[Rfam]
RNA sequence: UCGCAUAUUGCGACAUACAGGGUCCAGUCGCAUAAAGCCCCGAUUUAUCGGGGUUUUUUGUUAUCAGGCAAUUGCAUUACUGGGCUGAAAGCCCUUUUUUU
Numbered sequence: 001u002c003g004c005a006u007a008u009u010g011c012g013a014c015a016u017a018c019a020g021g022g023u024c025c026a027g028u029c030g031c032a033u034a035a036a037g038c039c040c041c042g043a044u045u046u047a048u049c050g051g052g053g054u055u056u057u058u059u060g061u062u063a064u065c066a067g068g069c070a071a072u073u074g075c076a077u078u079a080c081u082g083g084g085c086u087g088a089a090a091g092c093c094c095u096u097u098u099u100u101u
Stems, first nucleotide, its partner, number of pairs: 034057009082094004
The record is a 101-nucleotide RNA from Izhakiella capsodis, which matches "Gammaprotebacteria rimP leader" in Rfam. The base pairs follow the family's consensus structure, which is taken from published work. On this family, see Naville and Gautheret, Genome Biol 2010: "Premature terminator analysis sheds light on a hidden world of bacterial transcriptional attenuation". NCBI's taxonomy places the organism under Bacteria, Pseudomonadota, Gammaproteobacteria, Erwiniaceae, Izhakiella.